[Rfam]
RNA sequence: GGUCUUCGAUGUAACUGGCGACGGAAGUGGGUAACCACGAUGGAGCAUCGGAGUAUACGGCCGGUCGCCUGGGCAAAGAGC
Numbered sequence: 001g002g003u004c005u006u007c008g009a010u011g012u013a014a015c016u017g018g019c020g021a022c023g024g025a026a027g028u029g030g031g032u033a034a035c036c037a038c039g040a041u042g043g044a045g046c047a048u049c050g051g052a053g054u055a056u057a058c059g060g061c062c063g064g065u066c067g068c069c070u071g072g073g074c075a076a077a078g079a080g081c
Stems, first nucleotide, its partner, number of pairs: 004053009015042001017069005027038004060074003